Overview:
Small nucleolar RNA SNORD18: a 68-nucleotide sequence from Octopus sinensis. By type it is a C/D-box small nucleolar RNA. A reference for the family is Prislei et al. (1993), "Two different snoRNAs are encoded in introns of amphibian and human L1 ribosomal protein genes", Nucleic Acids Res. The base pairs follow the family's consensus structure, which was predicted with PFOLD. Rfam 15.1 lists 2,622 matches to the family in 960 species.

RNA sequence: AAGGAAUGAUGAUUCUAUAUUGGUCCGUGUUGCUGAAAGUAAUGAUAUUGUUACAAUAUACUGACCUU
Numbered sequence: 001a002a003g004g005a006a007u008g009a010u011g012a013u014u015c016u017a018u019a020u021u022g023g024u025c026c027g028u029g030u031u032g033c034u035g036a037a038a039g040u041a042a043u044g045a046u047a048u049u050g051u052u053a054c055a056a057u058a059u060a061c062u063g064a065c066c067u068u
Stems, first nucleotide, its partner, number of pairs: 001068004